RNA: Nitrogen stress-induced RNA 1
RNA sequence: UAGUAGAUGCACCCUAUACACACUCCCUAGUUUACGACUGGGGGUUUUUUUU
Dot-bracket structure: ..((......))...........(((((((((...)))))))))........